[Rfam]
RNA sequence: GGUCUUAUCUUUACAUUGGCCAUGAUUAUAGUGAACCUAUAAUUAAAAAUCAUCAAAUUGCGGGAAACCCCUAAAGAUAUCUUAACCAAACAAGAGUGGUAACACAUCUUGCGGCACAGUUAAUGACUCGUGGUAAGGUAAAAUCAAGAUAUAUAAUUCAAUGGGCAAUCCGCAGCCAAGUACCAGGUAUAACUUACAUGGUAUGCAGUUCAUCGACUAAACGGUGGUUAGUGUUAUUAUAAUAAUAAUAAUGCUUAAGAUAUAGUCAGCCCCCACCCGAAAGGGUGCA
Dot-bracket structure: ....((((..(((...)))..))))......................(((((.(....((((((....(((...........................................................................................)))...))))))((...((((((.............))))))...))...[.[[[[[...).))))).(((((((((......)))))))))........]]]]]].....(((((....)))))..
The family of this 289-nucleotide RNA from Gaeumannomyces tritici is "Group I catalytic intron".
A reference for the family is Cate et al. (1996), "Crystal structure of a group I ribozyme domain: principles of RNA packing", Science.
The family has 12 seed sequences and 5,602 matches in Rfam 15.1.
The match comes from Rfam's covariance-model search (104 bits).
Group I catalytic introns are large self-splicing ribozymes. They catalyse their own excision from mRNA, tRNA and rRNA precursors in a wide range of organisms. The core secondary structure consists of 9 paired regions (P1-P9). These fold to essentially two domains - the P4-P6 domain (formed from the stacking of P5, P4, P6 and P6a helices) and the P3-P9 domain (formed from the P8, P3, P7 and P9 helices). The secondary structure mark-up for this family represents only this conserved core. Group I catalytic introns often have long ORFs inserted in loop regions. The window size for this search is chosen to minimise search time and catch the small examples. A larger window size will find more matches.